About this RNA
mir-190 microRNA precursor family: a 78-nucleotide RNA sequence from Eumeta japonica. The family is grouped with related families in Rfam's "mir-50 clan". Its family is annotated with miRNA-mediated post-transcriptional gene silencing and RISC complex in the Gene Ontology. Pairs were carried over by alignment from the consensus structure, which was predicted with RNAalifold. The organism belongs to Eumeta, within Eukaryota.
RNA sequence: CAGUCGGUGAGAUAUGUUUGAUAUUCUUGGUUGUCUGACUGAUCCGCACCCAGGAAUCAAACAUAUUACUACCGACCG
Numbered sequence: 001c002a003g004u005c006g007g008u009g010a011g012a013u014a015u016g017u018u019u020g021a022u023a024u025u026c027u028u029g030g031u032u033g034u035c036u037g038a039c040u041g042a043u044c045c046g047c048a049c050c051c052a053g054g055a056a057u058c059a060a061a062c063a064u065a066u067u068a069c070u071a072c073c074g075a076c077c078g
Stems, first nucleotide, its partner, number of pairs: 005074005011067012024054002029051002032048002